[Rfam]
RNA sequence: GCUGCGACAAUUCCUUAGGGAAAUGAUCCGGCAAGAAUCAUUUGCAAGCGGGUAAAGUCCGCGUAGGUGCACAACCUCUCCCUAGUGGGGACACCAGUUAGACGCUGGUGAGAUCUUUGGCUACCAGCAAUUCUCUUUUUAAAAGAAGAUUGAAAUCGGCCUCUGGCACACAGCUUCUAUAAGUCCAAUACGCUGUAGGUCGCCUUGUCCUUGUGGCAAGGGGGCUGAAACUCAAUGCGGAUUAUUGGCCCACC
Numbered sequence: 001g002c003u004g005c006g007a008c009a010a011u012u013c014c015u016u017a018g019g020g021a022a023a024u025g026a027u028c029c030g031g032c033a034a035g036a037a038u039c040a041u042u043u044g045c046a047a048g049c050g051g052g053u054a055a056a057g058u059c060c061g062c063g064u065a066g067g068u069g070c071a072c073a074a075c076c077u078c079u080c081c082c083u084a085g086u087g088g089g090g091a092c093a094c095c096a097g098u099u100a101g102a103c104g105c106u107g108g109u110g111a112g113a114u115c116u117u118u119g120g121c122u123a124c125c126a127g128c129a130a131u132u133c134u135c136u137u138u139u140u141a142a143a144a145g146a147a148g149a150u151u152g153a154a155a156u157c158g159g160c161c162u163c164u165g166g167c168a169c170a171c172a173g174c175u176u177c178u179a180u181a182a183g184u185c186c187a188a189u190a191c192g193c194u195g196u197a198g199g200u201c202g203c204c205u206u207g208u209c210c211u212u213g214u215g216g217c218a219a220g221g222g223g224g225c226u227g228a229a230a231c232u233c234a235a236u237g238c239g240g241a242u243u244a245u246u247g248g249c250c251c252a253c254c
Stems, first nucleotide, its partner, number of pairs: 001254001003252002008247002013195001016192001024040004029035001059240005067169004077091002080089003093109006119161004134149003196227003200223002
RNA: Nuclear RNase P